[Rfam]
RNA sequence: ACACAGGGAAGGAGGUGGUCCGCGAAAUUGAUAGCUUCAUGGACAUGUGAGGUGGCUACGAGUUAGCUGCAUUGGCUCGGAAAAGUCGGCGCAAUGCACGCUGGCGAAUUCCCCGUAGCCACCCGGCCCCCGAGUUCCGGUCUGUCCAACCGAGAGCCUUGCUCGGGGGCCGCUCCAU
Numbered sequence: 001a002c003a004c005a006g007g008g009a010a011g012g013a014g015g016u017g018g019u020c021c022g023c024g025a026a027a028u029u030g031a032u033a034g035c036u037u038c039a040u041g042g043a044c045a046u047g048u049g050a051g052g053u054g055g056c057u058a059c060g061a062g063u064u065a066g067c068u069g070c071a072u073u074g075g076c077u078c079g080g081a082a083a084a085g086u087c088g089g090c091g092c093a094a095u096g097c098a099c100g101c102u103g104g105c106g107a108a109u110u111c112c113c114c115g116u117a118g119c120c121a122c123c124c125g126g127c128c129c130c131c132g133a134g135u136u137c138c139g140g141u142c143u144g145u146c147c148a149a150c151c152g153a154g155a156g157c158c159u160u161g162c163u164c165g166g167g168g169g170c171c172g173c174u175c176c177a178u
Stems, first nucleotide, its partner, number of pairs: 015059005062105006069097004075092002124172012136154001138152004